Shown here is a 131-nucleotide sequence from Grallaria varia, a member of the family "Small Cajal body specific RNA 8". Rfam 15.1 lists 955 matches to the family in 741 species. Pairs were carried over by alignment from the consensus structure, which is taken from published work. A reference for the family is Darzacq et al. (2002), "Cajal body-specific small nuclear RNAs: a novel class of 2'-O-methylation and pseudouridylation guide RNAs", EMBO J. Rfam's curators write: scaRNAs are a specific class of small nuclear RNAs which localise to the Cajal bodies and guide the modification of RNA polymerase II transcribed spliceosomal RNAs U1, U2, U4, U5 and U12. NCBI's taxonomy places the organism under Eukaryota, Teleostomi, Archelosauria, Theropoda, Grallaria.

[Rfam]
RNA sequence: UGGGAGACUGAUACGCAGCUAGGGCUAAAUCUGCCCUAAUUGUCAUGUUGUCCUCCCUAUAGUAAAAUUGCUUUCUGAUGACCGGGACGAAUUGAGGGAAAUCGUAACGGACAGAUACGGAGCACACAAUA
Number, nucleotide and partner (000 for none) at each position: 001u000002g057003g056004g055005a054006g053007a000008c000009u000010g000011a000012u000013a000014c000015g043016c042017a041018g040019c000020u000021a000022g036023g035024g034025c033026u000027a000028a000029a000030u000031c000032u000033g025034c024035c023036c022037u000038a000039a000040u018041u017042g016043u015044c000045a000046u000047g000048u000049u000050g000051u000052c000053c006054u005055c004056c003057c002058u000059a000060u000061a000062g000063u000064a000065a000066a000067a000068u000069u124070g123071c122072u121073u120074u119075c000076u000077g000078a000079u000080g000081a000082c110083c109084g108085g000086g000087a105088c104089g103090a102091a000092u000093u000094g000095a000096g000097g000098g000099a000100a000101a000102u090103c089104g088105u087106a000107a000108c084109g083110g082111a000112c000113a000114g000115a000116u000117a000118c000119g074120g073121a072122g071123c070124a069125c000126a000127c000128a000129a000130u000131a000